[Rfam]
RNA: PyrR binding site
Organism: Clostridium chauvoei
RNA sequence: AAACUCUUUAAAUUAGUCCAGAGAGGCUGAUAAGAAGUUAAAGUUUAGAGUAUAUGAUUCUAUUUAAGUAUAGAAUUGUUGUAACUUCUUGCAGCUAAAAGGCAAGGAGUUUUUUUAU
Numbered sequence: 001a002a003a004c005u006c007u008u009u010a011a012a013u014u015a016g017u018c019c020a021g022a023g024a025g026g027c028u029g030a031u032a033a034g035a036a037g038u039u040a041a042a043g044u045u046u047a048g049a050g051u052a053u054a055u056g057a058u059u060c061u062a063u064u065u066a067a068g069u070a071u072a073g074a075a076u077u078g079u080u081g082u083a084a085c086u087u088c089u090u091g092c093a094g095c096u097a098a099a100a101g102g103c104a105a106g107g108a109g110u111u112u113u114u115u116u117a118u
Stems, first nucleotide, its partner, number of pairs: 005035004013030006048077002051074001053072004058067002081113001083111010